[Rfam]
Nucleotides: 274
Stems, first nucleotide, its partner, number of pairs: 005130006012123006020045004026039004049056002062082004068075002133272002136269001140262006149238011160226001162194004169186007198223004203219002206217002240250002
Number, partner (000 for none) and nucleotide at each position: 001000g002000a003000g004000u005130c006129u007128a008127a009126c010125a011000a012123u013122c014121a015120u016119g017118c018000a019000a020045g021044u022043g023042u024000u025000u026039g027038g028037g029036u030000u031000u032000c033000u034000a035000a036029a037028c038027u039026c040000a041000u042023a043022c044021g045020c046000g047000u048000a049056a050055u051000g052000a053000a054000a055050g056049u057000a058000a059000u060000a061000g062082g063081a064080g065079c066000g067000a068075g069074c070000u071000c072000a073000g074069g075068c076000g077000c078000a079065g080064c081063u082062c083000c084000g085000a086000c087000c088000a089000c090000a091000u092000u093000g094000g095000a096000g097000c098000c099000u100000a101000a102000a103000c104000c105000c106000c107000a108000a109000u110000g111000u112000g113000a114000g115000u116000a117000a118017g119016c120015a121014u122013g123012g124000c125010u126009g127008u128007u129006g130005g131000g132000a133272c134271c135000c136269g137000a138000a139000a140262g141261a142260u143259g144258g145257u146000g147000a148000a149238c150237u151236a152235u153234a154233c155232u156231u157230g158229g159228a160226u161000a162194g163193g164192g165191u166000g167000a168000a169186g170185c171184c172183a173182g174181a175180g176000g177000a178000a179000a180175c181174u182173c183172u184171g185170g186169u187000g188000g189000a190000g191165g192164c193163u194162c195000g196000u197000a198223g199222c200221g201220g202000u203219u204218c205000u206217g207216a208000c209000g210000u211000g212000c213000a214000a215000a216207u217206c218204g219203a220201u221200c222199g223198u224000c225000g226160a227000a228159u229158c230157u231156g232155a233154g234153u235152a236151u237150a238149g239000g240250g241249g242000c243000g244000a245000a246000a247000g248000a249241c250240u251000a252000a253000u254000c255000g256000a257145a258144c259143c260142a261141u262140c263000u264000a265000g266000u267000a268000g269136c270000u271134g272133g273000u274000u
Shown here is a 274-nucleotide part of an RNA from Metschnikowia sp. JCM 33374, a member of the family "Archaeal large subunit ribosomal RNA". Rfam links the family to the GO terms structural constituent of ribosome and ribosome. The literature on the family includes a 2001 paper in Science by Yusupov et al., "Crystal structure of the ribosome at 5.5 A resolution".